[Rfam]
RNA: Plastid-ccsA-ndhD-1 3UTR RNA
RNA sequence: UAAGAACCUUUUGAAUCACUAUAUUACUUGAUUCAAAAGGUUCUCACAAAU
Dot-bracket structure: (.((((((((((((((((..........)))))))))))))))).).....